This 82-nucleotide RNA from Gossypium australe belongs to the Rfam family "tRNA". By type it is a transfer RNA. Its family is annotated with triplet codon-amino acid adaptor activity in the Gene Ontology. The base pairs follow the family's consensus structure, which is taken from published work.
RNA sequence: GCAAGUAUGCUGGAAUAGGUAAACAGGUCUUUUUUAAGCUAAGAUGUCUUAGGGCUUUAGGGUUCAAGUCCCUAUACUUGUA
Numbered sequence: 001g002c003a004a005g006u007a008u009g010c011u012g013g014a015a016u017a018g019g020u021a022a023a024c025a026g027g028u029c030u031u032u033u034u035u036a037a038g039c040u041a042a043g044a045u046g047u048c049u050u051a052g053g054g055c056u057u058u059a060g061g062g063u064u065c066a067a068g069u070c071c072c073u074a075u076a077c078u079u080g081u082a
Stems, first nucleotide, its partner, number of pairs: 001081007010026003028044004058074005